RNA: skipping-rope RNA
RNA sequence: GAUAUUUAAGGUCGGAAAGGCUCCCGACACUCCUGAAUAGGAACCUGAGAUGAUGGAUACGCCGCCCAUCUAAAUAUC
Dot-bracket structure: ((((((((..(((((...[[[..))))).(((((....))))....)....(((((....]]]..)))))))))))))